[Rfam]
RNA: Archaeal large subunit ribosomal RNA, nucleotides 644 to 902
Organism: Halogeometricum borinquense
RNA sequence: GAGUGCACUUACUUGGCGAGUCUAACCGGAUCAUCCGGGAAGGCGCAGGGAAACCGACAAGGCCGCAGCAUUGCGAGGGCCGCCGUGUUCAAGCGCGGGGAGUCAAGUGGGUGCGACCCGAAACCAGAUGAUCUACACGAGGGCAAGACGAAGCGUGGCGAAAGCCACGUGGAGGUCUGUUAGGGUUGGUGUCUUACAAUACCCUCCCGUGACCCGUGUGUAGGGGUGAAAGGCCCAUCGAAUCUGGCAACAGCUGGUU
Number, nucleotide and partner (000 for none) at each position: 001g000002a000003g000004u000005g114006c113007a112008c111009u110010u109011a108012c107013u106014u105015g104016g103017c102018g000019a000020g044021u043022c042023u041024a000025a000026c038027c037028g036029g035030a000031u000032c000033a000034u000035c029036c028037g027038g026039g000040a000041a023042g022043g021044c020045g000046c000047a000048g055049g054050g000051a000052a000053a000054c049055c048056g000057a000058c000059a000060a000061g081062g080063c079064c078065g000066c000067a000068g074069c073070a000071u000072u000073g069074c068075g000076a000077g000078g064079g063080c062081c061082g000083c000084c097085g096086u095087g094088u000089u000090c000091a000092a000093g000094c087095g086096c085097g084098g000099g000100g000101a000102g017103u016104c015105a014106a013107g012108u011109g010110g009111g008112u007113g006114c005115g000116a000117c257118c256119c000120g254121a000122a000123a000124c247125c246126a245127g244128a243129u242130g000131a000132u000133c223134u222135a221136c220137a219138c218139g217140a000141g215142g214143g213144c211145a000146a178147g177148a176149c175150g000151a000152a000153g170154c169155g168156u167157g166158g165159c164160g000161a000162a000163a000164g159165c158166c157167a156168c155169g154170u153171g000172g000173a000174g000175g149176u148177c147178u146179g000180u000181u000182a000183g208184g207185g206186u000187u000188g204189g203190u000191g202192u201193c000194u000195u000196a000197c000198a000199a000200u000201a192202c191203c189204c188205u000206c185207c184208c183209g000210u000211g144212a000213c143214c142215c141216g000217u139218g138219u137220g136221u135222a134223g133224g000225g235226g234227u233228g000229a000230a000231a000232g000233g227234c226235c225236c000237a000238u000239c000240g000241a000242a129243u128244c127245u126246g125247g124248c000249a000250a000251c000252a000253g000254c120255u000256g118257g117258u000259u000